HNH endonuclease-associated RNA and ORF (HEARO) RNA: a 211-nucleotide RNA from Ktedonospora formicarum. The family has 139 seed sequences and 952 matches in Rfam 15.1. A reference for the family is Weinberg et al. (2009), "Exceptional structured noncoding RNAs revealed by bacterial metagenome analysis", Nature. By type it is a non-coding RNA gene. Pairs were carried over by alignment from the consensus structure, which is taken from published work.
RNA sequence: GACAGGCCUGAAGGCAGGGGCUUGUACAUGCAAGCCUGAACCUGACCAAUCUGAGCCUUGAAACAGAGGCUACGUUAGGAGCGAAUGCAUAGGAGCGUUGGGGUGCUUUGCCAGCCUCAACCGCUUCGGCAAGUGGUUAAACAUCUGCACAGGGUGAAGGACGUGCUGCUUGCAAGAAACCGCUCCAUAACCUUGACGAGGCACACAUUAC
Numbered sequence: 001g002a003c004a005g006g007c008c009u010g011a012a013g014g015c016a017g018g019g020g021c022u023u024g025u026a027c028a029u030g031c032a033a034g035c036c037u038g039a040a041c042c043u044g045a046c047c048a049a050u051c052u053g054a055g056c057c058u059u060g061a062a063a064c065a066g067a068g069g070c071u072a073c074g075u076u077a078g079g080a081g082c083g084a085a086u087g088c089a090u091a092g093g094a095g096c097g098u099u100g101g102g103g104u105g106c107u108u109u110g111c112c113a114g115c116c117u118c119a120a121c122c123g124c125u126u127c128g129g130c131a132a133g134u135g136g137u138u139a140a141a142c143a144u145c146u147g148c149a150c151a152g153g154g155u156g157a158a159g160g161a162c163g164u165g166c167u168g169c170u171u172g173c174a175a176g177a178a179a180c181c182g183c184u185c186c187a188u189a190a191c192c193u194u195g196a197c198g199a200g201g202c203a204c205a206c207a208u209u210a211c
Base pairs, nucleotide, nucleotide: 003017007014008013021034022033023032024031050196051195053193054071055070056069057068058067074191075190076189077188079185080184081183082182083181093127094126097121098120099119100118101117102116103115104114107205109203110202111201112200129173130172131171132170133169134168135167136166137165141164142163144161145160146159148156149155